[Rfam]
RNA sequence: GUUAUUUGAAGUGGACAAUUGUGCCCUCCACACACCUACUAAUAAAUAGGUCAAAAGAGAUGUAGGAUUUGGCACACCUACCAAAUAGC
Numbered sequence: 001g002u003u004a005u006u007u008g009a010a011g012u013g014g015a016c017a018a019u020u021g022u023g024c025c026c027u028c029c030a031c032a033c034a035c036c037u038a039c040u041a042a043u044a045a046a047u048a049g050g051u052c053a054a055a056a057g058a059g060a061u062g063u064a065g066g067a068u069u070u071g072g073c074a075c076a077c078c079u080a081c082c083a084a085a086u087a088g089c
Stems, first nucleotide, its partner, number of pairs: 001089008011031005021075005033057001034051004062081005
The family of this 89-nucleotide sequence is "skipping-rope RNA". Pairs were carried over by alignment from the consensus structure, which is taken from published work.